[Rfam]
Rfam assigns this 292-nucleotide RNA from Trichonephila inaurata to the family "Nuclear RNase P".

RNA sequence: GUGCUGUGGGAAUUUACAUAAGGGGAUACGAUCGUAUUUAUUGCACUAUUUGCCCUUGGGAAGGUCUGAGAUGAUGCCGCCUUUCGAGGAGGUCUGAGAUGGGCUCCCGUUCAAUUAGCGGGACGGGCAAAGAGAAACCUUGUGUCUGGCGGUUUUGGUUGCGAAUGAAGCUCUCUCUGCUGACGCUCCCUUGCCGCAUAGAUUUGGGAUAUGCUCGUGGCAGGAAUGUCAAAGCUCGAUAUGCAAAGUGCCAUUUAUGGUGUAACACAAUUCAGACUACUCUCACACGCAC
Numbered sequence: 001g002u003g004c005u006g007u008g009g010g011a012a013u014u015u016a017c018a019u020a021a022g023g024g025g026a027u028a029c030g031a032u033c034g035u036a037u038u039u040a041u042u043g044c045a046c047u048a049u050u051u052g053c054c055c056u057u058g059g060g061a062a063g064g065u066c067u068g069a070g071a072u073g074a075u076g077c078c079g080c081c082u083u084u085c086g087a088g089g090a091g092g093u094c095u096g097a098g099a100u101g102g103g104c105u106c107c108c109g110u111u112c113a114a115u116u117a118g119c120g121g122g123a124c125g126g127g128c129a130a131a132g133a134g135a136a137a138c139c140u141u142g143u144g145u146c147u148g149g150c151g152g153u154u155u156u157g158g159u160u161g162c163g164a165a166u167g168a169a170g171c172u173c174u175c176u177c178u179g180c181u182g183a184c185g186c187u188c189c190c191u192u193g194c195c196g197c198a199u200a201g202a203u204u205u206g207g208g209a210u211a212u213g214c215u216c217g218u219g220g221c222a223g224g225a226a227u228g229u230c231a232a233a234g235c236u237c238g239a240u241a242u243g244c245a246a247a248g249u250g251c252c253a254u255u256u257a258u259g260g261u262g263u264a265a266c267a268c269a270a271u272u273c274a275g276a277c278u279a280c281u282c283u284c285a286c287a288c289g290c291a292c
Base pairs, nucleotide, nucleotide: 001292002291003290004289009284010283013247014246015245017243018242019241021057022056023055024054025053035043036042066275067274068273069272070271075222076221077220078219091105092104093103094102095101106122107121108120109119110118111117123218124217125216126215127214128213129212248263249262250261251260252259253258
From the family's description: Ribonuclease P (RNase P) is a ubiquitous endoribonuclease, found in archaea, bacteria and eukarya as well as chloroplasts and mitochondria. The family's RNA type in Rfam is ribozyme.